[Rfam]
RNA sequence: CUAGGUUAUGGCGACAUCGUUCCGGAGACAUUACCCGGCAAGCUAGUUGGUACAGCAUGUGCGAUAUGUGGCGUUCUAACUAUUGCUCUACCUAUACCUGUCAUUGUGAGUAAU
Numbered sequence: 001c002u003a004g005g006u007u008a009u010g011g012c013g014a015c016a017u018c019g020u021u022c023c024g025g026a027g028a029c030a031u032u033a034c035c036c037g038g039c040a041a042g043c044u045a046g047u048u049g050g051u052a053c054a055g056c057a058u059g060u061g062c063g064a065u066a067u068g069u070g071g072c073g074u075u076c077u078a079a080c081u082a083u084u085g086c087u088c089u090a091c092c093u094a095u096a097c098c099u100g101u102c103a104u105u106g107u108g109a110g111u112a113a114u
Stems, first nucleotide, its partner, number of pairs: 002113001004111001007108005013102004021094001037077002040074001050062002
The record is a 114-nucleotide RNA sequence from Paramuricea clavata, which matches "Potassium channel RNA editing signal" in Rfam.
From the family's description: This family represents a group of sequences related to the human potassium channel Kv1.1 hairpin element which directs the efficient modification of an adenosine to inosine by an adenosine deaminase acting on RNA (ADAR).
For this family Rfam cites "Control of human potassium channel inactivation by editing of a small mRNA hairpin" (Bhalla et al., Nat Struct Mol Biol, 2004).
A search with the family's covariance model found it, with a score of 76 bits.
The base pairs follow the family's consensus structure, which is taken from published work.
Taxonomically the source falls in Paramuricea (Eukaryota, Eumetazoa, Octocorallia, Malacalcyonacea).